[Rfam]
RNA: potC RNA
RNA sequence: AGACAAGUGCCCACUUCACUCUCCUUUAGGAUUUUUACCCUUUCCUAAAAAUUGUAGUGGGCAUUAAAAA
Numbered sequence: 001a002g003a004c005a006a007g008u009g010c011c012c013a014c015u016u017c018a019c020u021c022u023c024c025u026u027u028a029g030g031a032u033u034u035u036u037a038c039c040c041u042u043u044c045c046u047a048a049a050a051a052u053u054g055u056a057g058u059g060g061g062c063a064u065u066a067a068a069a070a
Base pairs, nucleotide, nucleotide: 006065007064008063009062010061011060012059013058014057015056017054018053027047028046029045030044031043